[Rfam]
RNA sequence: CAACUCGCUAUUUGGGGAGUAGCCAGCCGCGCCGUCGCGCGGGCUCCCGCGUCAACAUACUUGGCCGAGAGGCCAUGGCGCGGGAGGGACGGGUCACCGUUCGGGCGAGACCAAUGGCGUCGCAUCUCCGCUCUUGCCGGGCGGGGAGAUGCGAUGUCGUUGGAUUUCGUCUCCGUCCGGCCC
Numbered sequence: 001c002a003a004c005u006c007g008c009u010a011u012u013u014g015g016g017g018a019g020u021a022g023c024c025a026g027c028c029g030c031g032c033c034g035u036c037g038c039g040c041g042g043g044c045u046c047c048c049g050c051g052u053c054a055a056c057a058u059a060c061u062u063g064g065c066c067g068a069g070a071g072g073c074c075a076u077g078g079c080g081c082g083g084g085a086g087g088g089a090c091g092g093g094u095c096a097c098c099g100u101u102c103g104g105g106c107g108a109g110a111c112c113a114a115u116g117g118c119g120u121c122g123c124a125u126c127u128c129c130g131c132u133c134u135u136g137c138c139g140g141g142c143g144g145g146g147a148g149a150u151g152c153g154a155u156g157u158c159g160u161u162g163g164a165u166u167u168c169g170u171c172u173c174c175g176u177c178c179g180g181c182c183c
Stems, first nucleotide, its partner, number of pairs: 027042006045085010062075005086183003090179005
This 183-nucleotide sequence from Sphingomonas sp. IBVSS2 belongs to the Rfam family "Manganese Mn2+ riboswitch aptamer (yybP-ykoY)". The family has 29 seed sequences and 1,126 matches in Rfam 15.1. About the family: This RNA was originally discovered in E. coli during a large scale screen and was named SraF. The family was later found to exist upstream of related families of protein genes in many bacteria, including the the yybP and ykoK genes in B. subtilis.